[Rfam]
RNA sequence: AGGACAGUAUCGAUUACGAGCUGUACCAUGAAGUGUAAGUACAACUAAAAUGAAUGGCUGCCUUGAUCCAGCACGGACGGGGACAGAGGG
Numbered sequence: 001a002g003g004a005c006a007g008u009a010u011c012g013a014u015u016a017c018g019a020g021c022u023g024u025a026c027c028a029u030g031a032a033g034u035g036u037a038a039g040u041a042c043a044a045c046u047a048a049a050a051u052g053a054a055u056g057g058c059u060g061c062c063u064u065g066a067u068c069c070a071g072c073a074c075g076g077a078c079g080g081g082g083a084c085a086g087a088g089g090g
Stems, first nucleotide, its partner, number of pairs: 002027002004024005010019002058086003061082005067077003
This 90-nucleotide sequence from Salipaludibacillus agaradhaerens belongs to the Rfam family "pan motif".
Pairs were carried over by alignment from the consensus structure, which is taken from published work.
The match comes from Rfam's covariance-model search (62 bits).